[Rfam]
RNA sequence: GGCACACAACCUGCUCAUGCCUCUGUACAGGUAGCCAACGGCGGUUGCCCCACCCCGACAAAAGACGUCGC
Numbered sequence: 001g002g003c004a005c006a007c008a009a010c011c012u013g014c015u016c017a018u019g020c021c022u023c024u025g026u027a028c029a030g031g032u033a034g035c036c037a038a039c040g041g042c043g044g045u046u047g048c049c050c051c052a053c054c055c056c057g058a059c060a061a062a063a064g065a066c067g068u069c070g071c
Stems, first nucleotide, its partner, number of pairs: 030049007